The family of this 531-nucleotide part of an RNA from Pseudoloma neurophilia is "Microsporidia small subunit ribosomal RNA". Rfam 15.1 lists 1,035 matches to the family in 436 species. It scores 1185 bits against the family's covariance model. For this family Rfam cites "Crystal structure of the ribosome at 5.5 A resolution" (Yusupov et al., Science, 2001).
RNA sequence: UGACGGAUGAACACCUCAAAUAGUGGAGUGUGCGGCUUAAUUUGACUCAACGCGGGACAUCUUACCGGGCCCGACGACCGGACGAGCGUGACACGCGAUAGGUCGGAGAGUGGUGCAUGGCCGUUAACGACGAGUGGAGUGAUCUUUGGGUUAAGUCCGUAAAUUAGUGAGACCCCAGCGGAAGGACAGGUGCGCAACGCACAGGAAGGAUGGGUCAAGGACAGGUCAGUGAUGCCCUUAGAUGGCCCGGGCUGCACGCGCACUACAGUGGUCGCCGAAAUUUGGAGAGAGAGGGAAAGGCGAUCGAGAGGGAAUGAGCUUUGGAAGAGGCUCAGGAACGCGGAAUUGUUAGUAAUCGCGGGCUCACUAAGACGCGAUGAAUGCGACCCUGUUCAUUGUACACACCGCCCGUCGUUAUCGAAGACGAUGCUAGGCGCGAGCAAGGUUUAUUUGGCUGAGCGAGCGCAGGGUAUUGAAUCUGAUGUAAGUCGUAACAAGGUAGCUGUAGGAGAACCUGUAGCUGGAUCAGUC
Number, nucleotide and partner (000 for none) at each position: 001u402002g401003a399004c398005g397006g000007a396008u395009g394010a393011a392012c391013a390014c000015c000016u386017c385018a000019a000020a349021u348022a347023g346024u345025g266026g000027a264028g263029u262030g261031u260032g259033c258034g257035g255036c254037u000038u000039a000040a000041u056042u055043u054044g053045a000046c000047u000048c000049a000050a000051c000052g000053c044054g043055g042056g041057a000058c000059a000060u000061c000062u000063u000064a000065c250066c249067g248068g247069g246070c245071c244072c000073g000074a000075c105076g104077a103078c102079c101080g000081g000082a000083c000084g000085a000086g096087c095088g094089u093090g000091a000092c000093a089094c088095g087096c086097g000098a000099u000100a000101g079102g078103u077104c076105g075106g000107a000108g000109a238110g237111u000112g236113g235114u234115g233116c000117a000118u232119g230120g226121c225122c224123g222124u221125u220126a000127a000128c000129g000130a168131c167132g000133a165134g164135u163136g145137g144138a143139g000140u000141g000142a000143u138144c137145u136146u000147u000148g000149g158150g157151u000152u000153a000154a000155g000156u000157c150158c149159g000160u000161a000162a000163a135164u134165u133166a000167g131168u130169g000170a000171g000172a000173c000174c214175c213176c212177a211178g000179c184180g000181g000182a000183a000184g179185g000186a000187c205188a000189g000190g202191u201192g200193c199194g198195c000196a000197a000198c194199g193200c192201a191202c190203a000204g000205g187206a000207a000208g000209g000210a000211u177212g176213g175214g174215u000216c000217a000218a000219g000220g125221a124222c123223a000224g122225g121226u120227c000228a000229g000230u119231g000232a118233u115234g114235c113236c112237c110238u109239u000240a000241g000242a000243u000244g071245g070246c069247c068248c067249g066250g065251g000252c000253u000254g036255c035256a000257c034258g033259c032260g031261c030262a029263c028264u027265a000266c025267a000268g000269u000270g305271g304272u303273c302274g301275c300276c000277g000278a000279a000280a000281u000282u000283u000284g000285g000286a000287g000288a000289g000290a000291g000292a000293g000294g000295g000296a000297a000298a000299g000300g275301c274302g273303a272304u271305c270306g000307a000308g000309a000310g339311g000312g000313a000314a000315u334316g333317a332318g331319c330320u329321u328322u000323g000324g000325a000326a000327g000328a321329g320330g319331c318332u317333c316334a315335g000336g000337a000338a000339c310340g000341c000342g000343g000344a000345a024346u023347u022348g021349u020350u000351a000352g000353u000354a000355a378356u377357c376358g375359c374360g373361g000362g000363c000364u000365c000366a000367c000368u000369a000370a000371g000372a000373c360374g359375c358376g357377a356378u355379g000380a000381a000382u000383g000384c000385g017386a016387c000388c000389c000390u013391g012392u011393u010394c009395a008396u007397u005398g004399u003400a000401c002402a001403c000404a000405c000406c000407g495408c000409c000410c491411g490412u000413c488414g000415u000416u484417a483418u482419c481420g480421a000422a478423g000424a000425c475426g474427a473428u472429g471430c470431u469432a000433g000434g466435c465436g464437c463438g000439a000440g460441c459442a000443a000444g456445g455446u454447u453448u000449a000450u000451u000452u000453g447454g446455c445456u444457g000458a000459g441460c440461g000462a000463g437464c436465g435466c434467a000468g000469g431470g430471u429472a428473u427474u426475g425476a000477a000478u422479c000480u420481g419482a418483u417484g416485u000486a000487a000488g413489u000490c411491g410492u000493a000494a000495c407496a000497a000498g000499g000500u523501a522502g521503c520504u519505g518506u517507a516508g515509g514510a000511g000512a000513a000514c509515c508516u507517g506518u505519a504520g503521c502522u501523g500524g000525a000526u000527c000528a000529g000530u000531c000